[Rfam]
RNA sequence: UGUCUCCUCCAAACGUUCCCCGAACAUUGGAUUCAGCCCGCGCCGCAAGGUACGCGGGCAUUUUUUU
Numbered sequence: 001u002g003u004c005u006c007c008u009c010c011a012a013a014c015g016u017u018c019c020c021c022g023a024a025c026a027u028u029g030g031a032u033u034c035a036g037c038c039c040g041c042g043c044c045g046c047a048a049g050g051u052a053c054g055c056g057g058g059c060a061u062u063u064u065u066u067u
Stems, first nucleotide, its partner, number of pairs: 008031005015025002036059007